RNA sequence: GCCCCGCCUUGCCGAAUUGUCGCCGGAUGGCGUGCGUGGCCAGCAAUCGCUGGUCUAGGCAGGCGGGUCGCA
Number, nucleotide and partner (000 for none) at each position: 001g068002c067003c066004c065005c000006g064007c063008c062009u061010u000011g060012c059013c058014g000015a000016a000017u000018u036019g035020u034021c032022g031023c030024c029025g000026g000027a000028u000029g024030g023031c022032g021033u000034g020035c019036g018037u000038g055039g054040c053041c052042a051043g000044c000045a000046a000047u000048c000049g000050c000051u042052g041053g040054u039055c038056u000057a000058g013059g012060c011061a009062g008063g007064c006065g004066g003067g002068u001069c000070g000071c000072a000
RNA: DUF3800-IX RNA